Rfam assigns this 306-nucleotide RNA sequence from Hibiscus syriacus to the family "Plant signal recognition particle RNA". The source organism's lineage runs through Eukaryota, Tracheophyta, Magnoliopsida, Malvaceae and Hibiscus. The family's consensus secondary structure is taken from published work.
RNA sequence: GCCGAGCUUUGUAACGAAUGCUUGUGACCCGAGUGGGGGGCACUAAGAUGAUGGGACAUGGGUAUGGUUCAUUGAGUCGGAUCCUACGUGGCUUUACAAUGGCCUACCCGAUCCAAGCCAGGAGUUGAGCAAUGGUACCUCGGUGAAAACUGUGGGUGUCGUGGCUUCUAGAGUGAAGGGUACUGCGUCAGGCUGGUUUCACAGAGCAGCGAAGACCAUCCUCUCUUGGCAGUGGGAGGAUUACAGGCUUGAUCCAUUAAGAUCCAAAGGUCUCUUUGAGCCGACCAUGACUGGACCAUCAUCUUU
Numbered sequence: 001g002c003c004g005a006g007c008u009u010u011g012u013a014a015c016g017a018a019u020g021c022u023u024g025u026g027a028c029c030c031g032a033g034u035g036g037g038g039g040g041c042a043c044u045a046a047g048a049u050g051a052u053g054g055g056a057c058a059u060g061g062g063u064a065u066g067g068u069u070c071a072u073u074g075a076g077u078c079g080g081a082u083c084c085u086a087c088g089u090g091g092c093u094u095u096a097c098a099a100u101g102g103c104c105u106a107c108c109c110g111a112u113c114c115a116a117g118c119c120a121g122g123a124g125u126u127g128a129g130c131a132a133u134g135g136u137a138c139c140u141c142g143g144u145g146a147a148a149a150c151u152g153u154g155g156g157u158g159u160c161g162u163g164g165c166u167u168c169u170a171g172a173g174u175g176a177a178g179g180g181u182a183c184u185g186c187g188u189c190a191g192g193c194u195g196g197u198u199u200c201a202c203a204g205a206g207c208a209g210c211g212a213a214g215a216c217c218a219u220c221c222u223c224u225c226u227u228g229g230c231a232g233u234g235g236g237a238g239g240a241u242u243a244c245a246g247g248c249u250u251g252a253u254c255c256a257u258u259a260a261g262a263u264c265c266a267a268a269g270g271u272c273u274c275u276u277u278g279a280g281c282c283g284a285c286c287a288u289g290a291c292u293g294g295a296c297c298a299u300c301a302u303c304u305u306u
Stems, first nucleotide, its partner, number of pairs: 001041003004023004009018002028038001029036002045305010057293002059290001061288001062286001065283003069279003074274003078270001079265005085259002089256003094252001101249005108239002112236004117230008127167004132162009141152004168173001175220002178217002184213001186211003193204003